Background: This 66-nucleotide RNA from Laticauda laticaudata belongs to the Rfam family "Small nucleolar RNA SNORD82". The base pairs follow the family's consensus structure, which was predicted with PFOLD. On this family, see Galardi et al., Mol Cell Biol 2002: "Purified box C/D snoRNPs are able to reproduce site-specific 2'-O-methylation of target RNA in vitro". The match comes from Rfam's covariance-model search (49 bits).
RNA sequence: AGCACAAGUGAUGAGUUUUGGGACUUAAUACUGAUCUGGUGAUGUCUCAUGUAAGAUCUGAUGUGU
Number, nucleotide and partner (000 for none) at each position: 001a000002g066003c065004a064005c063006a062007a000008g000009u000010g000011a000012u000013g000014a000015g000016u000017u000018u000019u000020g000021g000022g000023a000024c000025u000026u000027a000028a000029u000030a000031c000032u000033g000034a000035u000036c000037u000038g000039g000040u000041g000042a000043u000044g000045u000046c000047u000048c000049a000050u000051g000052u000053a000054a000055g000056a000057u000058c000059u000060g000061a000062u006063g005064u004065g003066u002